RNA: Streptococcus sRNA SpF59 (ldcC RNA)
RNA sequence: UGACCCUUCCCCACCAGGGAACCAAGCUACGGACAGCCGGGUCGACUGCCGC
Numbered sequence: 001u002g003a004c005c006c007u008u009c010c011c012c013a014c015c016a017g018g019g020a021a022c023c024a025a026g027c028u029a030c031g032g033a034c035a036g037c038c039g040g041g042u043c044g045a046c047u048g049c050c051g052c
Stems, first nucleotide, its partner, number of pairs: 001044005007021005